[Rfam]
RNA: U1 spliceosomal RNA
Organism: Hibiscus syriacus
RNA sequence: AUAUUUACCUGGACGGGGUUAAUAGAUUGUUAUCAAGGUUCAUGGCCUAGGUAAGUGACCUCCAUUGCACUUGGGAGGAGCGCUCACCAAUGGUCUCUCACUAUAGGAGAGCCUACGUUAUAAUUUGUGGUAAUGGGUAGGGUUGAGCAACGAAACCGA
Numbered sequence: 001a002u003a004u005u006u007a008c009c010u011g012g013a014c015g016g017g018g019u020u021a022a023u024a025g026a027u028u029g030u031u032a033u034c035a036a037g038g039u040u041c042a043u044g045g046c047c048u049a050g051g052u053a054a055g056u057g058a059c060c061u062c063c064a065u066u067g068c069a070c071u072u073g074g075g076a077g078g079a080g081c082g083c084u085c086a087c088c089a090a091u092g093g094u095c096u097c098u099c100a101c102u103a104u105a106g107g108a109g110a111g112c113c114u115a116c117g118u119u120a121u122a123a124u125u126u127g128u129g130g131u132a133a134u135g136g137g138u139a140g141g142g143u144u145g146a147g148c149a150a151c152g153a154a155a156c157c158g159a
Base pairs, nucleotide, nucleotide: 012119013118014117015116016048017047018046019045020044021043023042025040026039027038050088051087055083056082057081060078061077062075063074092113093112094110095109096108097106098105136157137156138155142151143150144149